RNA sequence: AUAGUAAGUAGGAGGGGGGUGAGAACGGCCUCAUCCAGGAGUUGAUGCCCAGUUAUCCAGCGCCUAGAUGAUGCCUUUCUUCAUCCCCUUCAA
Numbered sequence: 001a002u003a004g005u006a007a008g009u010a011g012g013a014g015g016g017g018g019g020u021g022a023g024a025a026c027g028g029c030c031u032c033a034u035c036c037a038g039g040a041g042u043u044g045a046u047g048c049c050c051a052g053u054u055a056u057c058c059a060g061c062g063c064c065u066a067g068a069u070g071a072u073g074c075c076u077u078u079c080u081u082c083a084u085c086c087c088c089u090u091c092a093a
Stems, first nucleotide, its partner, number of pairs: 014089009023079003027075003031071005037065003041061004045056003

mir-337 microRNA precursor family: a 93-nucleotide RNA from Rhinolophus ferrumequinum. The source organism's lineage runs through Eukaryota, Mammalia, Boreoeutheria, Chiroptera and Rhinolophus. A reference for the family is Kim et al. (2004), "Identification of many microRNAs that copurify with polyribosomes in mammalian neurons", Proc Natl Acad Sci U S A.